[Rfam]
RNA: Bacterial RNase P class A
RNA sequence: CGAGCCGACCGGGCGGCCGCGGCGGAGUCCCUUCCGCCGAGGAAAGUCCGGACUCCACAGGGCAGGGUGGUUGCUAACGGCAACCAGGGGUGACCCUCGGGAAAGUGCCACAGAAAGCAGACCGCCCGGCCGACAGCGGCCGGGUAAGGGUGAAAGGGUGGUGUAAGAGACCACCAGCAUCCCUGGUGACAGGGAUGGCUCGGUAAACCCCACCCGGAGCAAGGUCAAGAGGACACCUCGGGUGUCUGCGCAAGUGUUCGAGGGUGGCCCGCCCGAGACUUGCGGGUAGACCGCUUGAGCCUGUCGGUGACGGCAGGCCCAGAUGGAUGGUCGCCACACGGAGGUGCCGUGAGGUCCUCCGUGACAGGAUCCGGCUUACAGGUCGACUCGUCCG
Numbered sequence: 001c002g003a004g005c006c007g008a009c010c011g012g013g014c015g016g017c018c019g020c021g022g023c024g025g026a027g028u029c030c031c032u033u034c035c036g037c038c039g040a041g042g043a044a045a046g047u048c049c050g051g052a053c054u055c056c057a058c059a060g061g062g063c064a065g066g067g068u069g070g071u072u073g074c075u076a077a078c079g080g081c082a083a084c085c086a087g088g089g090g091u092g093a094c095c096c097u098c099g100g101g102a103a104a105g106u107g108c109c110a111c112a113g114a115a116a117g118c119a120g121a122c123c124g125c126c127c128g129g130c131c132g133a134c135a136g137c138g139g140c141c142g143g144g145u146a147a148g149g150g151u152g153a154a155a156g157g158g159u160g161g162u163g164u165a166a167g168a169g170a171c172c173a174c175c176a177g178c179a180u181c182c183c184u185g186g187u188g189a190c191a192g193g194g195a196u197g198g199c200u201c202g203g204u205a206a207a208c209c210c211c212a213c214c215c216g217g218a219g220c221a222a223g224g225u226c227a228a229g230a231g232g233a234c235a236c237c238u239c240g241g242g243u244g245u246c247u248g249c250g251c252a253a254g255u256g257u258u259c260g261a262g263g264g265u266g267g268c269c270c271g272c273c274c275g276a277g278a279c280u281u282g283c284g285g286g287u288a289g290a291c292c293g294c295u296u297g298a299g300c301c302u303g304u305c306g307g308u309g310a311c312g313g314c315a316g317g318c319c320c321a322g323a324u325g326g327a328u329g330g331u332c333g334c335c336a337c338a339c340g341g342a343g344g345u346g347c348c349g350u351g352a353g354g355u356c357c358u359c360c361g362u363g364a365c366a367g368g369a370u371c372c373g374g375c376u377u378a379c380a381g382g383u384c385g386a387c388u389c390g391u392c393c394g
Stems, first nucleotide, its partner, number of pairs: 001390004006385005011379001012335007020039008044377003048374005053219004060270004065215005070084005085099001086097004100210002105208002107204003122149002124145009157175006177199001178197008223292004250283006262274004299318008